[Rfam]
RNA: TD-2 RNA
Organism: Treponema maltophilum
RNA sequence: CUGCACACGGAUGUGCAGAAAAGUUUUAAAUAAUGAGUUUUGCGGAGCAAAACUCGAGUUCAAAACCGCACAGGACGUGCGGUUUUGAAACAAAC
Dot-bracket structure: ((((((......))))))...............((((((((((...)))))))))).((((((((((((((.....)))))))))))).))....